Shown here is a 235-nucleotide part of an RNA from Rhizoctonia solani, a member of the family "Eukaryotic large subunit ribosomal RNA". Lineage of the source: Eukaryota > Opisthokonta > Fungi > Ceratobasidiaceae > Rhizoctonia.

[Rfam]
RNA sequence: CGCUUGAAGUCAGUCGCGUUCUCUGGGAUUCAGCCUGGCUUUUGCUUGGUGCAUUUCCCGGUCUACGGGCCAGCAUGAAUUUUGACCAAUGGAAAAAGGCUUGGGGAAUGUGGCACCUUCGGGUGUGUUAUAGCCCCUUGUCACAUACGUUGGUUGGGAUUGAGGUCUUAGUGCACGCUUCGGUUGUGCUUUGAUGCUGGCGUAAUGGCUUUAAACGACCCGUCUUGAAACACGG
Numbered sequence: 001c002g003c004u005u006g007a008a009g010u011c012a013g014u015c016g017c018g019u020u021c022u023c024u025g026g027g028a029u030u031c032a033g034c035c036u037g038g039c040u041u042u043u044g045c046u047u048g049g050u051g052c053a054u055u056u057c058c059c060g061g062u063c064u065a066c067g068g069g070c071c072a073g074c075a076u077g078a079a080u081u082u083u084g085a086c087c088a089a090u091g092g093a094a095a096a097a098g099g100c101u102u103g104g105g106g107a108a109u110g111u112g113g114c115a116c117c118u119u120c121g122g123g124u125g126u127g128u129u130a131u132a133g134c135c136c137c138u139u140g141u142c143a144c145a146u147a148c149g150u151u152g153g154u155u156g157g158g159a160u161u162g163a164g165g166u167c168u169u170a171g172u173g174c175a176c177g178c179u180u181c182g183g184u185u186g187u188g189c190u191u192u193g194a195u196g197c198u199g200g201c202g203u204a205a206u207g208g209c210u211u212u213a214a215a216c217g218a219c220c221c222g223u224c225u226u227g228a229a230a231c232a233c234g235g
Stems, first nucleotide, its partner, number of pairs: 001217002004214009017067003023061002071199006220235004